Group II catalytic intron D1-D4-3: a 171-nucleotide RNA from Massilia eurypsychrophila. NCBI's taxonomy places the organism under Bacteria, Pseudomonadota, Betaproteobacteria, Oxalobacteraceae, Massilia. The match comes from Rfam's covariance-model search (103 bits).
RNA sequence: GGAAGGGUAACCGACCGUGGGAAGGAAGCGUGGAGCAUAAAUCAUGAGCCGAUGGACAAGAACUGCAUAGAAGGCGCUGUCGAUCAGGGUGAGCGGGCAGAUAUCCGCGAAGCUCUUGUGGUCAAGGAGAGAUGGCGUAGAUGCAGCGGUUGUGUGAUGAAGGAGUGCGGC
Number, nucleotide and partner (000 for none) at each position: 001g016002g015003a000004a000005g012006g011007g000008u000009a000010a000011c006012c005013g000014a000015c002016c001017g000018u000019g000020g000021g000022a000023a000024g000025g000026a000027a000028g171029c170030g000031u000032g000033g000034a000035g000036c163037a000038u000039a000040a000041a158042u157043c156044a155045u154046g153047a151048g150049c149050c148051g147052a000053u000054g000055g000056a000057c000058a000059a000060g000061a000062a000063c146064u145065g144066c143067a142068u141069a000070g000071a000072a000073g000074g138075c137076g136077c000078u134079g133080u132081c131082g000083a000084u128085c000086a000087g115088g114089g113090u112091g000092a000093g108094c107095g106096g105097g000098c000099a000100g000101a000102u000103a000104u000105c096106c095107g094108c093109g000110a000111a000112g090113c089114u088115c087116u000117u000118g000119u000120g000121g000122u000123c000124a000125a000126g000127g000128a084129g000130a000131g081132a080133u079134g078135g000136c076137g075138u074139a000140g000141a068142u067143g066144c065145a064146g063147c051148g050149g049150u048151u047152g000153u046154g045155u044156g043157a042158u041159g000160a000161a000162g000163g036164a000165g000166u000167g000168c000169g000170g029171c028